[Rfam]
RNA sequence: UGCACUUGUAUAUGUUUUUGUUUAACUUGAAGACAAAGACUGACACACAGGUACAAAAAAUAGAUUAUCUUUUGCCACCCAGAAUUCAUUGAUCAGUGUGAGUUUUGAUACAUAAAAGCAGGGCUAGG
Numbered sequence: 001u002g003c004a005c006u007u008g009u010a011u012a013u014g015u016u017u018u019u020g021u022u023u024a025a026c027u028u029g030a031a032g033a034c035a036a037a038g039a040c041u042g043a044c045a046c047a048c049a050g051g052u053a054c055a056a057a058a059a060a061u062a063g064a065u066u067a068u069c070u071u072u073u074g075c076c077a078c079c080c081a082g083a084a085u086u087c088a089u090u091g092a093u094c095a096g097u098g099u100g101a102g103u104u105u106u107g108a109u110a111c112a113u114a115a116a117a118g119c120a121g122g123g124c125u126a127g128g
Base pairs, nucleotide, nucleotide: 001055002054004052005051006050007049008048009047011045014040015039016038017037018036019035020034021033064125066123068121071118072117073116080107081106082105083104084103085102086101087100088099089098